[Rfam]
This 100-nucleotide RNA sequence from Jeotgalibacillus sp. R-1-5s-1 belongs to the Rfam family "PyrR binding site". Rfam classes the family as a cis-regulatory element. About the family: This family represents the PyrR binding site and terminator structure. This RNA structure is found upstream of a variety of genes involved in pyrimidine biosynthesis and transport. The alignment also includes a portion of the antiterminator structure. The base pairs follow the family's consensus structure, which is taken from published work. It scores 62 bits against the family's covariance model. Rfam 15.1 lists 1,498 matches to the family in 930 species.
RNA sequence: AAUCCUUUUAAAUGAAGUCCAGAGAGGCUUUCAAAGGGGUUUUGACGGGAUCCGUCUGUCUAAAACCGCCUUCUGGAAGCAUAGAAGGCGGUUUUUUCAU
Numbered sequence: 001a002a003u004c005c006u007u008u009u010a011a012a013u014g015a016a017g018u019c020c021a022g023a024g025a026g027g028c029u030u031u032c033a034a035a036g037g038g039g040u041u042u043u044g045a046c047g048g049g050a051u052c053c054g055u056c057u058g059u060c061u062a063a064a065a066c067c068g069c070c071u072u073c074u075g076g077a078a079g080c081a082u083a084g085a086a087g088g089c090g091g092u093u094u095u096u097u098c099a100u
Base pairs, nucleotide, nucleotide: 003038004037005036006035007034008033014031015030016029017028018027019026045059046058047057048056062095063094064093065092066091067090068089069088070087071086072085073084074083075082